[Rfam]
RNA sequence: UUCCGAGGGGGAAAAGUUAUGGCGAUUAUGAAAAAUGUAACCAUAAGCGUAUAGCUUUUCCCCUUCGGCG
Numbered sequence: 001u002u003c004c005g006a007g008g009g010g011g012a013a014a015a016g017u018u019a020u021g022g023c024g025a026u027u028a029u030g031a032a033a034a035a036u037g038u039a040a041c042c043a044u045a046a047g048c049g050u051a052u053a054g055c056u057u058u059u060c061c062c063c064u065u066c067g068g069c070g
Stems, first nucleotide, its partner, number of pairs: 003068005009062003013058002017054005026046005